Record summary
Shown here is a 125-nucleotide RNA from Novosphingobium sp., a member of the family "Glycine riboswitch aptamer".
RNA sequence: UAGCGAUGCUCUGGAAAGUGUUCCGCCGCCGCAUUUUGUGGGCGCGGUGGAGCCGCCGAAGGGGUAACCGGGUUCCGUCAGGGAACCUGGGAAAGCUCUCAGGUUUCCGUGACAGAGGGGGCACC
Numbered sequence: 001u002a003g004c005g006a007u008g009c010u011c012u013g014g015a016a017a018g019u020g021u022u023c024c025g026c027c028g029c030c031g032c033a034u035u036u037u038g039u040g041g042g043c044g045c046g047g048u049g050g051a052g053c054c055g056c057c058g059a060a061g062g063g064g065u066a067a068c069c070g071g072g073u074u075c076c077g078u079c080a081g082g083g084a085a086c087c088u089g090g091g092a093a094a095g096c097u098c099u100c101a102g103g104u105u106u107c108c109g110u111g112a113c114a115g116a117g118g119g120g121g122c123a124c125c
Stems, first nucleotide, its partner, number of pairs: 007119001009117005020053010055104003058100002062098003068091002

Rfam links the family to the GO term glycine biosynthetic process.